Rfam assigns this 264-nucleotide RNA sequence from Carboxydothermus hydrogenoformans to the family "Bacterial large signal recognition particle RNA".

Nucleotides: 264
Stems, first nucleotide, its partner, number of pairs: 001264006009057003012030004017025001019023001034054005062257006071248005077242001079240001081238006090232002094226005102219002105215002112211009121199006127190001130188005135181001137178004146171004154163003
Number, partner (000 for none) and nucleotide at each position: 001264c002263c003262g004261u005260g006259c007000u008000a009057g010056g011055c012030g013029g014028g015027g016000a017025g018000g019023u020000a021000g022000c023019g024000g025017u026000g027015c028014c029013c030012u031000g032000u033000a034054c035053c036052c037051g038050c039000a040000a041000u042000c043000c044000g045000c046000u047000a048000u049000a050038g051037c052036g053035g054034g055011g056010c057009u058000g059000a060000a061000g062257g063256c064255u065254g066253c067252c068000c069000g070000a071248g072247g073246g074245u075244u076000u077242a078000c079240c080000u081238u082237g083236u084235g085234a086233g087000g088000a089000c090232c091231g092000g093000c094226c095225c096224c097223g098222g099000c100000a101000a102219g103218u104000a105215g106214c107000a108000a109000u110000g111000a112211g113210a114209u115208u116207u117206g118205g119204g120203u121199c122198u123197u124196g125195c126194g127190c128000a129000g130188c131187g132186g133185a134184g135181a136000c137178u138177c139176c140175c141000g142000a143000a144000c145000c146171g147170u148169g149168u150000c151000a152000g153000g154163u155162c156161c157000g158000g159000a160000a161156g162155g163154a164000a165000g166000c167000a168149g169148c170147a171146c172000u173000a174000a175140g176139g177138g178137a179000a180000a181135u182000c183000c184134c185133u186132c187131c188130g189000g190127g191000u192000g193000c194126c195125g196124c197123a198122a199121g200000g201000g202000u203120g204119c205118c206117u207116g208115a209114a210113u211112c212000g213000a214106g215105c216000c217000a218103a219102c220000u221000a222098c223097c224096g225095g226094g227000g228000u229000a230000a231091c232090g233086c234085u235084c236083g237082u238081a239000c240079g241000a242077u243000a244075a245074a246073c247072u248071c249000g250000a251000c252067g253066g254065c255064a256063g257062u258000u259006g260005c261004a262003c263002g264001g

The base pairs follow the family's consensus structure, which is taken from published work. By type it is a non-coding RNA gene.